This 35-nucleotide sequence from Sus scrofa belongs to the Rfam family "L31-Firmicutes ribosomal protein leader".
The family is grouped with related families in Rfam's "Ribosomal Protein L31 Leader clan".
The match comes from Rfam's covariance-model search (34 bits).
The family's consensus secondary structure is taken from published work.
The family's RNA type in Rfam is cis-regulatory leader.
[Rfam]
RNA sequence: UUCUGGAUCAGAAAAUGACCUCAGGGCAAAAGGAG
Numbered sequence: 001u002u003c004u005g006g007a008u009c010a011g012a013a014a015a016u017g018a019c020c021u022c023a024g025g026g027c028a029a030a031a032g033g034a035g
Base pairs, nucleotide, nucleotide: 001026002025003024004023005022008018009017010016
Dot-bracket structure: (((((..(((.....)))...))))).........